[Rfam]
This 256-nucleotide part of an RNA from a Candidatus Methanophagaceae archaeon belongs to the Rfam family "Archaeal large subunit ribosomal RNA".
RNA sequence: GAGUAUAUCUCAAUGGCGAGGCUAACCCGAAGAGGGGAAGCCGGAGGGUAACCGACAGGUUCGCAUCGUUAGAGAGGAACGACGUAUGAACUGCGUGGAGUCAUUGGGAUAUGACCCGAAGCCGGGUGAUCUAAGCGUGGGCAGGCUGAAGUUCUCCGAAAGGGGAAUGGAGGGCCGAACCGGUGAUGACUUGCAAAUCUCUCGGAUGACCUGCGUUUAGUGGAGAAAGGCCAAUCGAACCCGGCAAUAGCUGGUU
Numbered sequence: 001g002a003g004u005a006u007a008u009c010u011c012a013a014u015g016g017c018g019a020g021g022c023u024a025a026c027c028c029g030a031a032g033a034g035g036g037g038a039a040g041c042c043g044g045a046g047g048g049u050a051a052c053c054g055a056c057a058g059g060u061u062c063g064c065a066u067c068g069u070u071a072g073a074g075a076g077g078a079a080c081g082a083c084g085u086a087u088g089a090a091c092u093g094c095g096u097g098g099a100g101u102c103a104u105u106g107g108g109a110u111a112u113g114a115c116c117c118g119a120a121g122c123c124g125g126g127u128g129a130u131c132u133a134a135g136c137g138u139g140g141g142c143a144g145g146c147u148g149a150a151g152u153u154c155u156c157c158g159a160a161a162g163g164g165g166a167a168u169g170g171a172g173g174g175c176c177g178a179a180c181c182g183g184u185g186a187u188g189a190c191u192u193g194c195a196a197a198u199c200u201c202u203c204g205g206a207u208g209a210c211c212u213g214c215g216u217u218u219a220g221u222g223g224a225g226a227a228a229g230g231c232c233a234a235u236c237g238a239a240c241c242c243g244g245c246a247a248u249a250g251c252u253g254g255u256u
Stems, first nucleotide, its partner, number of pairs: 005112013020042004026036003046053002059080004066073002083095004115254002118251001122244006131220011142208001144176004151168007180205004185201002188199002222232002

Overview: The base pairs follow the family's consensus structure, which is taken from published work.